[Rfam]
RNA sequence: GGGUGUCUAUCGACUGUAACAGCAACUCCAUGUGGAAGCUUGAGGCUGUUCCCGUGGGGGGGCUGUUAUUUUCGAUGGGCAC
Numbered sequence: 001g002g003g004u005g006u007c008u009a010u011c012g013a014c015u016g017u018a019a020c021a022g023c024a025a026c027u028c029c030a031u032g033u034g035g036a037a038g039c040u041u042g043a044g045g046c047u048g049u050u051c052c053c054g055u056g057g058g059g060g061g062g063c064u065g066u067u068a069u070u071u072u073c074g075a076u077g078g079g080c081a082c
Stems, first nucleotide, its partner, number of pairs: 010075003016069008026059006034052002

This 82-nucleotide RNA sequence from Pantherophis guttatus belongs to the Rfam family "mir-194 microRNA precursor family". Taxonomically the source falls in Pantherophis (Eukaryota, Deuterostomia, Amniota, Lepidosauria). The base pairs follow the family's consensus structure, which was predicted with RNAalifold. A search with the family's covariance model found it, with a score of 70 bits. The literature on the family includes a 2003 paper in RNA by Lagos-Quintana et al., "New microRNAs from mouse and human".